RNA sequence: CUGGAGGGUCUGCAGCGGGCUUCCUUGCCCAAAAACUUCAUCCUUGAUACACAGACCUUAGACUACCUCAUUACGUUUAGAGUACACCGAGGACUUCCUUGUCCACCAAGAUCCUAGAGACCUCAGCUAAACUACCUUGUUUAUCAGC
Numbered sequence: 001c002u003g004g005a006g007g008g009u010c011u012g013c014a015g016c017g018g019g020c021u022u023c024c025u026u027g028c029c030c031a032a033a034a035a036c037u038u039c040a041u042c043c044u045u046g047a048u049a050c051a052c053a054g055a056c057c058u059u060a061g062a063c064u065a066c067c068u069c070a071u072u073a074c075g076u077u078u079a080g081a082g083u084a085c086a087c088c089g090a091g092g093a094c095u096u097c098c099u100u101g102u103c104c105a106c107c108a109a110g111a112u113c114c115u116a117g118a119g120a121c122c123u124c125a126g127c128u129a130a131a132c133u134a135c136c137u138u139g140u141u142u143a144u145c146a147g148c
Stems, first nucleotide, its partner, number of pairs: 001147003004124002006058007017030004038047003067119003091104004128143005
Description:
The record is a 148-nucleotide RNA from Coxiella burnetii, which matches "Coxiella burnetii sRNA 12" in Rfam. It is annotated as a small RNA. For this family Rfam cites "Identification of novel small RNAs and characterization of the 6S RNA of Coxiella burnetii" (Warrier et al., PLoS One, 2014). The family's consensus secondary structure was predicted with CMfinder. Rfam describes the family as follows. In bacteria small regulatory RNAs are activated during stress and virulence conditions. Coxiella burnetii small RNAs: CbSRs 1, 11, 12, and 14 encoded within intergenic region IGR, and CbSRs 2, 3, 4 and 9 located antisense to identified ORFs, are up-regulated during intracellular growth in host cells. The source organism's lineage runs through Bacteria, Pseudomonadota, Legionellales, Coxiellaceae and Coxiella burnetii.